This 217-nucleotide RNA from Gulo gulo belongs to the Rfam family "Small nucleolar RNA U3". Rfam links the family to the GO terms nucleolus and RNA processing. Pairs were carried over by alignment from the consensus structure, which is taken from published work. The source organism's lineage runs through Eukaryota, Eumetazoa, Euteleostomi, Laurasiatheria and Gulo. It scores 206 bits against the family's covariance model. Rfam's curators write: Small nucleolar RNAs (snoRNAs) are involved in the processing and modification of rRNA in the nucleolus. There are two main classes of snoRNAs: the box C/D class, and the box H/ACA class. The family is grouped with related families in Rfam's "U3 clan".
[Rfam]
RNA sequence: AAGACUAUACUUUCAGGGAUCAUUUCUAUAGUUUGUUACUAGAGAAGUUUCUCUGAAUGUGUAGAGUACCCAAAACCACGAGGAGGAGGCGUGGUGUUCUCUCCUGAGCGUGAAGUUGGCGUUAGGUGUUGCUUAUUGCAACUGCCUUUUGCCGUUGAUGAUCGUUCUUCUUCCCUUUUGUGGGGGAGUAAGAGGGAGAGAACGCAGUCUGAGUGGU
Numbered sequence: 001a002a003g004a005c006u007a008u009a010c011u012u013u014c015a016g017g018g019a020u021c022a023u024u025u026c027u028a029u030a031g032u033u034u035g036u037u038a039c040u041a042g043a044g045a046a047g048u049u050u051c052u053c054u055g056a057a058u059g060u061g062u063a064g065a066g067u068a069c070c071c072a073a074a075a076c077c078a079c080g081a082g083g084a085g086g087a088g089g090c091g092u093g094g095u096g097u098u099c100u101c102u103c104c105u106g107a108g109c110g111u112g113a114a115g116u117u118g119g120c121g122u123u124a125g126g127u128g129u130u131g132c133u134u135a136u137u138g139c140a141a142c143u144g145c146c147u148u149u150u151g152c153c154g155u156u157g158a159u160g161a162u163c164g165u166u167c168u169u170c171u172u173c174c175c176u177u178u179u180g181u182g183g184g185g186g187a188g189u190a191a192g193a194g195g196g197a198g199a200g201a202a203c204g205c206a207g208u209c210u211g212a213g214u215g216g217u
Stems, first nucleotide, its partner, number of pairs: 002040002006035002009032003015027004049065002054061001075217005094205012108165003118153004124147004128142005168191002170188007